[Rfam]
RNA sequence: CCGCACCUGAUACUGACCCUGCCGUUCCCCAGCCUCUCAGCUCCUGUGAGCGGGGGGGUUGGACCCCCGUGACUGUAGGGUCUCAUGUGGUGCCAUAGCAACAGCAGCCCUGAGAUUUAAGCUCCGAGUGUAAAGACACACUCUGUGUUAUGGCUCAGAGGCACAGCG
Numbered sequence: 001c002c003g004c005a006c007c008u009g010a011u012a013c014u015g016a017c018c019c020u021g022c023c024g025u026u027c028c029c030c031a032g033c034c035u036c037u038c039a040g041c042u043c044c045u046g047u048g049a050g051c052g053g054g055g056g057g058g059u060u061g062g063a064c065c066c067c068c069g070u071g072a073c074u075g076u077a078g079g080g081u082c083u084c085a086u087g088u089g090g091u092g093c094c095a096u097a098g099c100a101a102c103a104g105c106a107g108c109c110c111u112g113a114g115a116u117u118u119a120a121g122c123u124c125c126g127a128g129u130g131u132a133a134a135g136a137c138a139c140a141c142u143c144u145g146u147g148u149u150a151u152g153g154c155u156c157a158g159a160g161g162c163a164c165a166g167c168g
Stems, first nucleotide, its partner, number of pairs: 003093005015082004020077003024073002027071001029062005034056001036054003040051003107162003126141001128139004142159004147154002
Rfam assigns this 168-nucleotide sequence from Albula goreensis to the family "Small Cajal body specific RNA 1".
Lineage of the source: Eukaryota > Opisthokonta > Craniata > Albulinae > Albula.
The family's consensus secondary structure was predicted with RNAalifold.
Rfam describes the family as follows. scaRNAs are a specific class of small nuclear RNAs which localise to the Cajal bodies and guide the modification of RNA polymerase II transcribed spliceosomal RNAs U1, U2, U4, U5 and U12.
The match comes from Rfam's covariance-model search (83 bits).
On this family, see Darzacq et al., EMBO J 2002: "Cajal body-specific small nuclear RNAs: a novel class of 2'-O-methylation and pseudouridylation guide RNAs".